[Rfam]
RNA: SAM riboswitch aptamer (S box leader)
RNA sequence: AGGUUAUCAAGAGUGAACGAGAGCACUGGCUCAAUGACUUCACAGCAACCUGCCCCGUGGGUAAGGUGCUCCUUCCAGCAAAGCUUGCUUUGAAUGAUAACGA
Numbered sequence: 001a002g003g004u005u006a007u008c009a010a011g012a013g014u015g016a017a018c019g020a021g022a023g024c025a026c027u028g029g030c031u032c033a034a035u036g037a038c039u040u041c042a043c044a045g046c047a048a049c050c051u052g053c054c055c056c057g058u059g060g061g062u063a064a065g066g067u068g069c070u071c072c073u074u075c076c077a078g079c080a081a082a083g084c085u086u087g088c089u090u091u092g093a094a095u096g097a098u099a100a101c102g103a
Stems, first nucleotide, its partner, number of pairs: 003101006013043005021032003026078004044070004049066002053060002079092005